A member of the RNA family "Archaeal small subunit ribosomal RNA" from uncultured Candidatus Nitrosocaldus sp., 577 nucleotides of a longer RNA. The sequence is in the family's curated seed alignment.
[Rfam]
RNA sequence: UGGCGGGGGAGCACCACAAGGGGUGAAGCCUGCGGUUUAAUUGGAGUCAACGCCGGGAACCUUACCAGGGGUGACAGCAGGAUGAAGGUCAAGCCAAAGACUUUACCAGACAAGCUGAGAGGAGGUGCAUGGCCGUCGCCAGCUCGUGCCGUGAGGUGUCCUGUUAAGUCAGGUAACGAGCGAGACCCUCGCAUCCAGUUGCUACCAUCACUCUUUGGAGCGGUGGGGCUAACUGGAUGGACUGCCGCCGAUAAGGCGGAGGAAGGAGGGGGCUACGGCAGGUCAGUAUGCCCCGAAACCCCUGGGCCACACGCGGGCUGCAAUGGUAGGGACAAUGGGUUCCGACCCCGAAAGGGGGAGGCAAUCCCCAAACCCUACCCCAGUUAUGAUUGAGGGCUGCAACCCGCCCUCAUGAAUCUGGAAUCCCUAGUAAUCGCGUGUCACCAUCGCGCGGUGAAUACGUCCCUGCUCCUUGCACACACCGCCCGUCGCUUCACCCGAGGUGGGCUUGCGUGAGAUGGUGCCUCUUGGUAUCAUCGAACGCAAGCUUGCUGAGGGGGGAGAAGUCGUAACAAGG
Number, nucleotide and partner (000 for none) at each position: 001u479002g478003g476004c475005g474006g000007g473008g472009g471010a470011g469012c468013a467014c000015c000016a463017c462018a000019a000020g427021g426022g425023g424024u423025g321026a000027a319028g318029c317030c316031u315032g314033c313034g312035g310036u309037u000038u000039a000040a000041u056042u055043g054044g053045a000046g000047u000048c000049a000050a000051c000052g000053c044054c043055g042056g041057g000058a000059a000060c000061c000062u000063u000064a000065c305066c304067a303068g302069g301070g300071g299072u000073g000074a000075c117076a116077g115078c114079a000080g111081g000082a000083u000084g000085a000086a000087g107088g106089u105090c000091a103092a102093g101094c000095c000096a000097a000098a000099g000100a000101c093102u092103u091104u000105a089106c088107c087108a000109g000110a000111c080112a000113a000114g078115c077116u076117g075118a000119g000120a000121g294122g293123a000124g292125g291126u290127g289128c000129a000130u288131g287132g283133c282134c281135g279136u278137c277138g276139c000140c000141a000142g181143c180144u179145c178146g177147u176148g157149c156150c155151g000152u000153g000154a000155g150156g149157u148158g000159u000160c173161c172162u171163g170164u000165u000166a000167a000168g000169u000170c163171a162172g161173g160174u000175a000176a147177c146178g145179a144180g143181c142182g000183a000184g000185a000186c000187c271188c270189u269190c268191g000192c239193a238194u237195c236196c235197a234198g233199u000200u000201g000202c228203u227204a000205c000206c225207a224208u223209c222210a000211c220212u219213c000214u000215u000216u000217g000218g000219a212220g211221c000222g209223g208224u207225g206226g000227g203228g202229c000230u000231a000232a000233c198234u197235g196236g195237a194238u193239g192240g000241a000242c262243u261244g000245c259246c258247g257248c256249c255250g000251a000252u000253a000254a000255g249256g248257c247258g246259g245260a000261g243262g242263a000264a000265g000266g000267a000268g190269g189270g188271g187272g000273c000274u000275a000276c138277g137278g136279c135280a000281g134282g133283u132284c000285a000286g000287u131288a130289u127290g126291c125292c124293c122294c121295g000296a000297a000298a000299c071300c070301c069302c068303u067304g066305g065306g000307c000308c000309a036310c035311a000312c034313g033314c032315g031316g030317g029318c028319u027320g000321c025322a000323a000324u000325g379326g378327u377328a376329g375330g374331g373332a000333c000334a000335a000336u000337g368338g367339g366340u000341u000342c361343c360344g000345a000346c357347c356348c355349c354350g000351a000352a000353a000354g349355g348356g347357g346358g000359a000360g343361g342362c000363a000364a000365u000366c339367c338368c337369c000370a000371a000372a000373c331374c330375c329376u328377a327378c326379c325380c000381c000382a000383g000384u000385u000386a417387u000388g000389a000390u000391u412392g411393a410394g409395g408396g407397c406398u000399g000400c000401a000402a000403c000404c000405c000406g397407c396408c395409c394410u393411c392412a391413u000414g000415a000416a000417u386418c000419u000420g000421g000422a000423a024424u023425c022426c021427c020428u000429a000430g000431u000432a000433a455434u454435c453436g452437c451438g450439u449440g448441u000442c000443a000444c000445c000446a000447u000448c440449g439450c438451g437452c436453g435454g434455u433456g000457a000458a000459u000460a000461c000462g017463u016464c000465c000466c000467u013468g012469c011470u010471c009472c008473u007474u005475g004476c003477a000478c002479a001480c000481a000482c576483c000484g573485c000486c000487c569488g568489u000490c566491g000492c563493u562494u561495c560496a000497c558498c557499c556500g000501a000502g553503g552504u551505g550506g549507g548508c547509u546510u545511g544512c543513g542514u541515g000516a000517g538518a537519u536520g535521g534522u533523g532524c531525c530526u000527c000528u000529u000530g525531g524532u523533a522534u521535c520536a519537u518538c517539g000540a000541a514542c513543g512544c511545a510546a509547g508548c507549u506550u505551g504552c503553u502554g000555a000556g499557g498558g497559g000560g495561g494562a493563g492564a000565a000566g490567u000568c488569g487570u000571a000572a000573c484574a000575a000576g482577g000
Its Rfam clan is "SSU clan".
The literature on the family includes a 2001 paper in Science by Yusupov et al., "Crystal structure of the ribosome at 5.5 A resolution".
The family's consensus secondary structure is taken from published work.
The source organism's lineage runs through Archaea, Thermoproteati, Nitrososphaeria, Candidatus Nitrosocaldales and Candidatus Nitrosocaldus.